[Rfam]
RNA sequence: GGCGGGCCGCAAGUGCCGCGACAGUCGAUCAUCGUAUGCUGUCGCGCGUGGCUUCUCCCCGUC
Numbered sequence: 001g002g003c004g005g006g007c008c009g010c011a012a013g014u015g016c017c018g019c020g021a022c023a024g025u026c027g028a029u030c031a032u033c034g035u036a037u038g039c040u041g042u043c044g045c046g047c048g049u050g051g052c053u054u055c056u057c058c059c060c061g062u063c
Base pairs, nucleotide, nucleotide: 001063002062003061004060005059006058013049014048015047017046018045019044020043021042022041023040024039025038026034027033
RNA: gabT RNA